[Rfam]
RNA sequence: GGCUGAUCUACCGGGACGCCGGGAAAAGGUGGUACCUCACCGCCCUGGUCAGCCUCCUAUAAAUGAGGG
Numbered sequence: 001g002g003c004u005g006a007u008c009u010a011c012c013g014g015g016a017c018g019c020c021g022g023g024a025a026a027a028g029g030u031g032g033u034a035c036c037u038c039a040c041c042g043c044c045c046u047g048g049u050c051a052g053c054c055u056c057c058u059a060u061a062a063a064u065g066a067g068g069g
Base pairs, nucleotide, nucleotide: 001054002053003052004051005050006049007048008047011022012021013020014019028044029043030042031041032040035069036068037067